RNA sequence: GGCUGGUUCUGGGGUGAUGCACCCCAGAAUCGGGCUCUCUCCUCUCUGGUUCCAGGUGCGUCAUUACCCAAGAACCGCC
Numbered sequence: 001g002g003c004u005g006g007u008u009c010u011g012g013g014g015u016g017a018u019g020c021a022c023c024c025c026a027g028a029a030u031c032g033g034g035c036u037c038u039c040u041c042c043u044c045u046c047u048g049g050u051u052c053c054a055g056g057u058g059c060g061u062c063a064u065u066a067c068c069c070a071a072g073a074a075c076c077g078c079c
Stems, first nucleotide, its partner, number of pairs: 002078002006075005012069007020058004027052008
RNA: mir-9223 microRNA precursor family
Organism: Myotis lucifugus